The family of this 129-nucleotide RNA from Populus tomentosa is "Small nucleolar RNA snoR74".
The organism belongs to Populus, within Eukaryota.
The literature on the family includes a 2002 paper in Curr Biol by Marker et al., "Experimental RNomics: identification of 140 candidates for small non-messenger RNAs in the plant Arabidopsis thaliana".
The match comes from Rfam's covariance-model search (118 bits).
RNA sequence: AAAAAAGCAGGGCCUUGUUGCCUUUUGUGAACAUGGCUCUCGUAAACUUCAGGGAAAUUAAUUGCAUUGUUAUUGGGUGAACCUCUGUUGUUAUUGGUGGCUGAAGGUUCAGUAAAUGAUGGUACAAUU
Numbered sequence: 001a002a003a004a005a006a007g008c009a010g011g012g013c014c015u016u017g018u019u020g021c022c023u024u025u026u027g028u029g030a031a032c033a034u035g036g037c038u039c040u041c042g043u044a045a046a047c048u049u050c051a052g053g054g055a056a057a058u059u060a061a062u063u064g065c066a067u068u069g070u071u072a073u074u075g076g077g078u079g080a081a082c083c084u085c086u087g088u089u090g091u092u093a094u095u096g097g098u099g100g101c102u103g104a105a106g107g108u109u110c111a112g113u114a115a116a117u118g119a120u121g122g123u124a125c126a127a128u129u
Stems, first nucleotide, its partner, number of pairs: 005049003011038002014035001016033002065121007078111007